[Rfam]
RNA sequence: GGACCCUUUAAACCAGUCCAGAGAGGCUGAGAAGGUGGCGGAUAUGAUUUACGGUUGAAGUUUGCCGUAGUAUACCCUUUUGCCAUCUUUGGCAAAAGGGUAUUUUUA
Numbered sequence: 001g002g003a004c005c006c007u008u009u010a011a012a013c014c015a016g017u018c019c020a021g022a023g024a025g026g027c028u029g030a031g032a033a034g035g036u037g038g039c040g041g042a043u044a045u046g047a048u049u050u051a052c053g054g055u056u057g058a059a060g061u062u063u064g065c066c067g068u069a070g071u072a073u074a075c076c077c078u079u080u081u082g083c084c085a086u087c088u089u090u091g092g093c094a095a096a097a098g099g100g101u102a103u104u105u106u107u108a
Stems, first nucleotide, its partner, number of pairs: 005035005014029005049070007057062001072103014
Rfam assigns this 108-nucleotide sequence from Salinibacillus xinjiangensis to the family "PyrR binding site".
This family represents the PyrR binding site and terminator structure. This RNA structure is found upstream of a variety of genes involved in pyrimidine biosynthesis and transport. The alignment also includes a portion of the antiterminator structure.